The family of this 150-nucleotide sequence from Desulfonispora thiosulfatigenes is "glmS glucosamine-6-phosphate activated ribozyme aptamer". Pairs were carried over by alignment from the consensus structure, which is taken from published work.
RNA sequence: UGGUAUGAAUAAGCGCCUGGACCAGUACAUGGUUGACGAGGGGGAAGUUUAAUCGAAAAUUCGGCGGAUGCUUCCCGGUUGCUGCAUGACCGAAAAAGAUAUCUUAAAUCCUAAAAGUAAUUUUAGGGACAAAGGGUAUUAGAUGCAGUG
Numbered sequence: 001u002g003g004u005a006u007g008a009a010u011a012a013g014c015g016c017c018u019g020g021a022c023c024a025g026u027a028c029a030u031g032g033u034u035g036a037c038g039a040g041g042g043g044g045a046a047g048u049u050u051a052a053u054c055g056a057a058a059a060u061u062c063g064g065c066g067g068a069u070g071c072u073u074c075c076c077g078g079u080u081g082c083u084g085c086a087u088g089a090c091c092g093a094a095a096a097a098g099a100u101a102u103c104u105u106a107a108a109u110c111c112u113a114a115a116a117g118u119a120a121u122u123u124u125a126g127g128g129a130c131a132a133a134g135g136g137u138a139u140u141a142g143a144u145g146c147a148g149u150g
Base pairs, nucleotide, nucleotide: 020034021033022032023031024030043075044074045073046072047071053064054063055062056061076092077091078090079089080088081087098140099139100138101137102136103135110127111126112125113124114123115122116121